[Rfam]
RNA sequence: GGAUAAUUCGACAUCAUGUGAUAAGGUCUUGUUCGUCGUAAUGGUGAGCUUGUUCUCACCUUGACGACCAUCAUGUUUAUAUCACUACCCAUAAACAAAAUCA
Number, nucleotide and partner (000 for none) at each position: 001g000002g102003a101004u100005a000006a000007u000008u000009c000010g000011a000012c000013a000014u000015c000016a000017u000018g000019u000020g000021a000022u000023a000024a000025g000026g000027u000028c000029u000030u000031g000032u000033u000034c000035g000036u000037c000038g000039u000040a000041a000042u000043g000044g000045u000046g062047a061048g057049c000050u000051u000052g000053u000054u000055c000056u000057c048058a000059c000060c000061u047062u046063g000064a000065c000066g000067a000068c000069c000070a000071u000072c000073a000074u000075g000076u000077u000078u000079a000080u000081a000082u000083c000084a000085c000086u000087a000088c000089c000090c000091a000092u000093a000094a000095a000096c000097a000098a000099a000100a004101u003102c002103a000